RtT RNA: a 130-nucleotide RNA from Neiella litorisoli. Rfam classes the family as a cis-regulatory element. The match comes from Rfam's covariance-model search (76 bits). From the family's description: This family represents a bacterial cis-regulatory element known as RtT RNA. The exact function of RtT is unknown although it is thought that it may be involved in changing the cellular response in relation to amino acid starvation. The family has 57 seed sequences and 651 matches in Rfam 15.1. Gene Ontology term of the family: cellular response to amino acid starvation. Lineage of the source: Bacteria > Pseudomonadati > Pseudomonadota > Gammaproteobacteria > Neiella.
RNA sequence: CCUCAAUGCAGCUUGGGAGGGUGAGAAGCCUCGUGGGUUCGAGUCGAGCGCGCAGCGCGAGACAACAUCGCCAAUGGCGAUGGCCCGAAGGGAAGGAGCGAAGCGACGCAUCAUCCCUCCCUAUGUUUAG
Numbered sequence: 001c002c003u004c005a006a007u008g009c010a011g012c013u014u015g016g017g018a019g020g021g022u023g024a025g026a027a028g029c030c031u032c033g034u035g036g037g038u039u040c041g042a043g044u045c046g047a048g049c050g051c052g053c054a055g056c057g058c059g060a061g062a063c064a065a066c067a068u069c070g071c072c073a074a075u076g077g078c079g080a081u082g083g084c085c086c087g088a089a090g091g092g093a094a095g096g097a098g099c100g101a102a103g104c105g106a107c108g109c110a111u112c113a114u115c116c117c118u119c120c121c122u123a124u125g126u127u128u129a130g
Base pairs, nucleotide, nucleotide: 015121016120017119018118019117020116021115022113032092038089039088040087041086045059046058066082067081068080069079070078071077
Dot-bracket structure: ..............((((((((.........(.....((((...((...........))......((((((.....))))))...))))..)....................).))))))).........